[Rfam]
RNA sequence: CCAACGGCCCUCUUUAGGGCCACAUCUCUCAUAUAAAACAAUUGCUU
Numbered sequence: 001c002c003a004a005c006g007g008c009c010c011u012c013u014u015u016a017g018g019g020c021c022a023c024a025u026c027u028c029u030c031a032u033a034u035a036a037a038a039c040a041a042u043u044g045c046u047u
Stems, first nucleotide, its partner, number of pairs: 006021006
This 47-nucleotide RNA sequence from Steinernema hermaphroditum belongs to the Rfam family "Histone 3' UTR stem-loop". The source organism's lineage runs through Eukaryota, Eumetazoa, Bilateria, Chromadorea and Steinernema. The mRNAs of metazoan histone genes lack a poly-A tail. 3' end processing occurs at a site between a highly conserved stem-loop (modelled by this family) and a purine rich region around 20 nts downstream (the histone downstream element, or HDE). The stem-loop is bound by a 31 kDa stem-loop binding protein (SLBP - also termed the histone hairpin binding protein, or HBP). Together with U7 snRNA binding of the HDE, SLBP binding nucleate s the formation of the processing complex. The base pairs follow the family's consensus structure, which is taken from published work. Its family is annotated with mRNA 3'-end processing by stem-loop binding and cleavage in the Gene Ontology. The family's RNA type in Rfam is cis-regulatory element.